[Rfam]
RNA sequence: GCACGGGCUUAGCCGGGCGGUUACUUCGCACAAAGAAUUUAAGUUCAUUAAUAAACCUUACUGCCCAUUGACCGUUGGCGCCAUCCAGUGCUUUU
Numbered sequence: 001g002c003a004c005g006g007g008c009u010u011a012g013c014c015g016g017g018c019g020g021u022u023a024c025u026u027c028g029c030a031c032a033a034a035g036a037a038u039u040u041a042a043g044u045u046c047a048u049u050a051a052u053a054a055a056c057c058u059u060a061c062u063g064c065c066c067a068u069u070g071a072c073c074g075u076u077g078g079c080g081c082c083a084u085c086c087a088g089u090g091c092u093u094u095u
Stems, first nucleotide, its partner, number of pairs: 002090003006086002012079004017075004026071003
RNA: Vault RNA